[Rfam]
RNA: Small nucleolar RNA snoR26
RNA sequence: GGGGCAUUACUGAUGAGUUGAUAAAAAAUUGUUAUCCUUACAUUUUUAUUUGUAGUGAAGAACAUCAUGGGAAUUUAUUACUUUAAAGAUGCUC
Numbered sequence: 001g002g003g004g005c006a007u008u009a010c011u012g013a014u015g016a017g018u019u020g021a022u023a024a025a026a027a028a029u030u031g032u033u034a035u036c037c038u039u040a041c042a043u044u045u046u047u048a049u050u051u052g053u054a055g056u057g058a059a060g061a062a063c064a065u066c067a068u069g070g071g072a073a074u075u076u077a078u079u080a081c082u083u084u085a086a087a088g089a090u091g092c093u094c
Stems, first nucleotide, its partner, number of pairs: 002094007
Dot-bracket structure: .(((((((...............................................................................)))))))